[Rfam]
RNA: Glycine riboswitch aptamer
RNA sequence: CUGUCUGGUUCGGGAGACAUUGAUCCCAAUCAAGGCCGAAGGAGCAACCGCCUCGGAAACUCUCAGGCAAAAGGACCGUAUCGGACAC
Numbered sequence: 001c002u003g004u005c006u007g008g009u010u011c012g013g014g015a016g017a018c019a020u021u022g023a024u025c026c027c028a029a030u031c032a033a034g035g036c037c038g039a040a041g042g043a044g045c046a047a048c049c050g051c052c053u054c055g056g057a058a059a060c061u062c063u064c065a066g067g068c069a070a071a072a073g074g075a076c077c078g079u080a081u082c083g084g085a086c087a088c
Base pairs, nucleotide, nucleotide: 006083007082008081009080011078012077013076020033021032022031023030035068036067037066038064039063042062043061044060048055